[Rfam]
RNA sequence: GGGAAAUGGGAGCAGGGCUUGGGAAAAGAGCCGUCCCAAGCCGCAGGCCAGCUAGGCUCA
Numbered sequence: 001g002g003g004a005a006a007u008g009g010g011a012g013c014a015g016g017g018c019u020u021g022g023g024a025a026a027a028g029a030g031c032c033g034u035c036c037c038a039a040g041c042c043g044c045a046g047g048c049c050a051g052c053u054a055g056g057c058u059c060a
Stems, first nucleotide, its partner, number of pairs: 016042009028059005
This 60-nucleotide RNA sequence from Suricata suricatta belongs to the Rfam family "Ma3 gene ribosomal frameshift signal". Pairs were carried over by alignment from the consensus structure, which is taken from published work. NCBI's taxonomy places the organism under Eukaryota, Craniata, Theria, Carnivora, Suricata. On this family, see Wills et al., J Biol Chem 2006: "A functional -1 ribosomal frameshift signal in the human paraneoplastic Ma3 gene". By type it is a frameshift element.